[Rfam]
RNA sequence: CCCCCAAGGGGAAGCGAAGACCCUAUAGAGCUUUACUGCAGGCUGUCGCUGAGACAUGGUCGCUGAUGUGCAGCAUAGGUAGGAGCCACUACACAGGUAUCCGCGCCAGCGGAUCACCGAGGCAGUCAUGAAAUACUACCCGUCAGUGACUGUGACUCUCACUCCGGGAGGAAAACACCGGUAGCCGGGCAGUUUGACUGGGGCGGUACGCGCUCGAAAAGAUAUCGAGCGCGCCCAAAGGUCUCCUCACGUGAGUCGGAAACUCACAGACGAGCGCAAGAGCACACGGAGGCCUGACAGUGAUCUUCCCAACGAGGAUCGCUGACGCGAAAGCGUGGUCUAGCGAACCAACGAGGUUCAGAGAUGGGACCCGUUGAUGACAGAAAAGCUACCUUAGGGAUAACAGAGUCGUCACUCGCAAGAGCACAUAUCGACCGAGUGGCUUGCUACCUCGAUGUCGGUUCCCUCCAUCCUGCCUGUGCAGACGCAGGCAAGGGUGAGGUUGUUCGCCUAUUAAAGGAGGUCGUGAGCUGGGUUUAGACCGUCGUGAGACAGGUCGGCUGCUAUCUAUUGGGGGUGUAA
Numbered sequence: 001c002c003c004c005c006a007a008g009g010g011g012a013a014g015c016g017a018a019g020a021c022c023c024u025a026u027a028g029a030g031c032u033u034u035a036c037u038g039c040a041g042g043c044u045g046u047c048g049c050u051g052a053g054a055c056a057u058g059g060u061c062g063c064u065g066a067u068g069u070g071c072a073g074c075a076u077a078g079g080u081a082g083g084a085g086c087c088a089c090u091a092c093a094c095a096g097g098u099a100u101c102c103g104c105g106c107c108a109g110c111g112g113a114u115c116a117c118c119g120a121g122g123c124a125g126u127c128a129u130g131a132a133a134u135a136c137u138a139c140c141c142g143u144c145a146g147u148g149a150c151u152g153u154g155a156c157u158c159u160c161a162c163u164c165c166g167g168g169a170g171g172a173a174a175a176c177a178c179c180g181g182u183a184g185c186c187g188g189g190c191a192g193u194u195u196g197a198c199u200g201g202g203g204c205g206g207u208a209c210g211c212g213c214u215c216g217a218a219a220a221g222a223u224a225u226c227g228a229g230c231g232c233g234c235c236c237a238a239a240g241g242u243c244u245c246c247u248c249a250c251g252u253g254a255g256u257c258g259g260a261a262a263c264u265c266a267c268a269g270a271c272g273a274g275c276g277c278a279a280g281a282g283c284a285c286a287c288g289g290a291g292g293c294c295u296g297a298c299a300g301u302g303a304u305c306u307u308c309c310c311a312a313c314g315a316g317g318a319u320c321g322c323u324g325a326c327g328c329g330a331a332a333g334c335g336u337g338g339u340c341u342a343g344c345g346a347a348c349c350a351a352c353g354a355g356g357u358u359c360a361g362a363g364a365u366g367g368g369a370c371c372c373g374u375u376g377a378u379g380a381c382a383g384a385a386a387a388g389c390u391a392c393c394u395u396a397g398g399g400a401u402a403a404c405a406g407a408g409u410c411g412u413c414a415c416u417c418g419c420a421a422g423a424g425c426a427c428a429u430a431u432c433g434a435c436c437g438a439g440u441g442g443c444u445u446g447c448u449a450c451c452u453c454g455a456u457g458u459c460g461g462u463u464c465c466c467u468c469c470a471u472c473c474u475g476c477c478u479g480u481g482c483a484g485a486c487g488c489a490g491g492c493a494a495g496g497g498u499g500a501g502g503u504u505g506u507u508c509g510c511c512u513a514u515u516a517a518a519g520g521a522g523g524u525c526g527u528g529a530g531c532u533g534g535g536u537u538u539a540g541a542c543c544g545u546c547g548u549g550a551g552a553c554a555g556g557u558c559g560g561c562u563g564c565u566a567u568c569u570a571u572u573g574g575g576g577g578u579g580u581a582a
Base pairs, nucleotide, nucleotide: 001577002576003575004574005573006572007571010569011568012567014564015563022398023397024396025395027394028393029390030389031388032387033386035193036192037191038190042185043184044183045182046181047180048179051158052157053156055154056153057152058151059150060149061148062147063146064145065144066143067142068141078140079139080138081137082136085123086122087121100113101112102111103110104109163172164171165170196209197207198206199205210232211231212230213229214228215227235338236337241293242292243291244290245289246288247273248272251267252266253265254264255263274283275282298324299323300322301321302320303319304318305317306316326335328333349376350375351374352373353372355371356370357369358368359367407448408447409446411445412442413441414440415439416438417437418436422432423431459534460532461531462530463529464526465523466522467521468520469519472497473496476491477490478489479488480487500512501511502510503509540558541557542556543555544553545552546551